[Rfam]
RNA: Bacterial large subunit ribosomal RNA, nucleotides 610 to 838
RNA sequence: GACUUAUAGGCAGUGGCAGGUUAAGAUAGAGAAUAUUAAAGCCAUAGUGAAAGCGAGCCUUAAUAGGGCGUAAGUCACUGUUUAUAGACCCGAACCCGGAUGAUCUAGCCAUGGCCAGGGUGAAGCUUAGGUAACACUAAGUGGAGGUCCGAACCGACUGAUGUUGAAAAAUCAGCGGACGAGCUGUGGCUAGGGGUGAAAUGCCAAUCGAAUCCGGAGCUAGCUGGUU
Numbered sequence: 001g002a003c004u005u006a007u008a009g010g011c012a013g014u015g016g017c018a019g020g021u022u023a024a025g026a027u028a029g030a031g032a033a034u035a036u037u038a039a040a041g042c043c044a045u046a047g048u049g050a051a052a053g054c055g056a057g058c059c060u061u062a063a064u065a066g067g068g069c070g071u072a073a074g075u076c077a078c079u080g081u082u083u084a085u086a087g088a089c090c091c092g093a094a095c096c097c098g099g100a101u102g103a104u105c106u107a108g109c110c111a112u113g114g115c116c117a118g119g120g121u122g123a124a125g126c127u128u129a130g131g132u133a134a135c136a137c138u139a140a141g142u143g144g145a146g147g148u149c150c151g152a153a154c155c156g157a158c159u160g161a162u163g164u165u166g167a168a169a170a171a172u173c174a175g176c177g178g179a180c181g182a183g184c185u186g187u188g189g190c191u192a193g194g195g196g197u198g199a200a201a202u203g204c205c206a207a208u209c210g211a212a213u214c215c216g217g218a219g220c221u222a223g224c225u226g227g228u229u
Base pairs, nucleotide, nucleotide: 005086006085007084008083009082010081011080012079013078014077015076016075017074019043020042021041022040025037026036027035047054048053057069058068059067060066089227090226092224096217097216098215099214100213101212105193106192107191108190109189110188111187112186113185114184115183116181118150119149120148121147125142126141127140128139129138130137154178155177156176158175159174160173161172162171195205196204197203